[Rfam]
Overview:
The record is a 144-nucleotide RNA sequence from Fukomys damarensis, which matches "Small nucleolar RNA SNORA12" in Rfam.

RNA sequence: GGUUGUGGUAGUUUCUUUCUGGCACAUUUGUUAAGUUUUCAAAUGGGCCUAACUCUGCCACAUACAUUGUAAGGAGCUGUCAAAGGCUUAAAGACAGAGCAAUCUCUCUUGAGCUUUUGUGUAUCAAUAUUAGCUCUUACAGUC
Numbered sequence: 001g002g003u004u005g006u007g008g009u010a011g012u013u014u015c016u017u018u019c020u021g022g023c024a025c026a027u028u029u030g031u032u033a034a035g036u037u038u039u040c041a042a043a044u045g046g047g048c049c050u051a052a053c054u055c056u057g058c059c060a061c062a063u064a065c066a067u068u069g070u071a072a073g074g075a076g077c078u079g080u081c082a083a084a085g086g087c088u089u090a091a092a093g094a095c096a097g098a099g100c101a102a103u104c105u106c107u108c109u110u111g112a113g114c115u116u117u118u119g120u121g122u123a124u125c126a127a128u129a130u131u132a133g134c135u136c137u138u139a140c141a142g143u144c
Stems, first nucleotide, its partner, number of pairs: 005061007021049003025045006073137006079088001081086001105129001107127001109126001
Lineage of the source: Eukaryota > Bilateria > Gnathostomata > Tetrapoda > Fukomys. From the family's description: U108 belongs to the H/ACA family of snoRNAs. The sequence is predicted to guide the pseudouridylation of the U372 residue in the 28S rRNA subunit. Its family is annotated with RNA processing and nucleolus in the Gene Ontology.